A member of the RNA family "mir-989 microRNA precursor family" from Drosophila ananassae, 155 nucleotides long.
The family's consensus secondary structure was predicted with RNAalifold.
[Rfam]
RNA sequence: GUUUCGGGAAGUGGCCACUACCUCGCAGUCACGUGAUGCCAAAAUGCAACUGACACUGAUCCGGAGAUGGUCCUCCAUCCUUGGGAUUAGUGUUAAUUUGUGUUUUUUUUAUUUGAAUAGUUCAUGUGAUGUGACGUAGUGGAACAUUCCUGGCG
Numbered sequence: 001g002u003u004u005c006g007g008g009a010a011g012u013g014g015c016c017a018c019u020a021c022c023u024c025g026c027a028g029u030c031a032c033g034u035g036a037u038g039c040c041a042a043a044a045u046g047c048a049a050c051u052g053a054c055a056c057u058g059a060u061c062c063g064g065a066g067a068u069g070g071u072c073c074u075c076c077a078u079c080c081u082u083g084g085g086a087u088u089a090g091u092g093u094u095a096a097u098u099u100g101u102g103u104u105u106u107u108u109u110u111a112u113u114u115g116a117a118u119a120g121u122u123c124a125u126g127u128g129a130u131g132u133g134a135c136g137u138a139g140u141g142g143a144a145c146a147u148u149c150c151u152g153g154c155g
Stems, first nucleotide, its partner, number of pairs: 004153007015142007023134004029129004034124003